[Rfam]
RNA sequence: CCCAGCAGUUGUCAGCUGUCUGGCACUUUUCCAUGCCUGUUAUGGUGUUACACUGCUGGUAGAUAAAAUCACUGCCCCCUUAUGCUAAGUGCCAUUGUAACUGUUCUGGUCACAUGUCACUUGCAUUGGGCAGUGCCAGGCUUCCUCGAGAGUGUGCUGAACAUUUGUUUUGAAUGUUAAGUGCUAGUCUGGAAGCACACAUG
Dot-bracket structure: .((((((((.((..((((((.(((..........))).)..)))))...))))))))))..........((((((((....((((..((((.(.(....(((.....)))...).).)))).)))).))))))))....((((((........(((.(.(((((.........))))).).)))......)))))).......

This 203-nucleotide RNA from Xenopus laevis belongs to the Rfam family "Small nucleolar RNA SNORA74". The source organism's lineage runs through Eukaryota, Eumetazoa, Chordata, Amphibia and Xenopus. For this family Rfam cites "Human U19 intron-encoded snoRNA is processed from a long primary transcript that possesses little potential for protein coding" (Bortolin and Kiss, RNA, 1998). The match comes from Rfam's covariance-model search (106 bits). From the family's description: U19 belongs to the H/ACA class of snoRNAs. snoRNAs bind a number of proteins (including dyskerin, Gar1p and Nop10p in the case of the H/ACA class) to form snoRNP complexes. This class are thought to guide the sites of modification of uridines to pseudouridines by forming direct base pairing interactions with substrate RNAs. Targets may include ribosomal and spliceosomal RNAs but the exact functions of many snoRNAs, including U19, are not confirmed. Clan: SNORA74 clan. The family's RNA type in Rfam is H/ACA-box small nucleolar RNA. Its family is annotated with RNA processing and nucleolus in the Gene Ontology.